[Rfam]
RNA sequence: UAUGUACACUAGGGGUGUUCUUAAGAGGAACUGAGACGGGCUUUGACAGCACGAUCCCUUUGAACCUGUGAGUUUAGACUCGCGAAGGAAAGUGUCCAAUCAGUUUA
Numbered sequence: 001u002a003u004g005u006a007c008a009c010u011a012g013g014g015g016u017g018u019u020c021u022u023a024a025g026a027g028g029a030a031c032u033g034a035g036a037c038g039g040g041c042u043u044u045g046a047c048a049g050c051a052c053g054a055u056c057c058c059u060u061u062g063a064a065c066c067u068g069u070g071a072g073u074u075u076a077g078a079c080u081c082g083c084g085a086a087g088g089a090a091a092g093u094g095u096c097c098a099a100u101c102a103g104u105u106u107a
Base pairs, nucleotide, nucleotide: 006095007094008093009092010091011059012058013057014056016053017031018030019029020028021027038052040050041049042048065088066087067086069082070081071080072079
This 107-nucleotide RNA from Agrilactobacillus composti belongs to the Rfam family "TPP riboswitch aptamer (THI element)". Rfam links the family to the GO term thiamine pyrophosphate binding. The source organism's lineage runs through Bacteria, Bacillati, Lactobacillaceae, Agrilactobacillus and Agrilactobacillus composti. The literature on the family includes a 2002 paper in J Biol Chem by Rodionov et al., "Comparative genomics of thiamin biosynthesis in procaryotes. New genes and regulatory mechanisms". It scores 63 bits against the family's covariance model.